[Rfam]
RNA sequence: AUGACGGACGUGGGAGAGUACGAUCAGGUGUGAAGCACGCUGGUCGUCGCCGAAGGCGCAAGGCGCGGGCCGCCAAUCCCGUGCCGAAACGCUCAGGCUCCAGAACUGCGUUCCGACG
Dot-bracket structure: .....((((((((......((((((((............)))))))).(((((..(((...((((((((........))))))))....))))).))).......)))))))).....
The family of this 118-nucleotide RNA from a Roseiflexaceae bacterium is "Glycine riboswitch aptamer". Taxonomically the source falls in Roseiflexaceae (Bacteria, Bacillati, Chloroflexales, Roseiflexineae).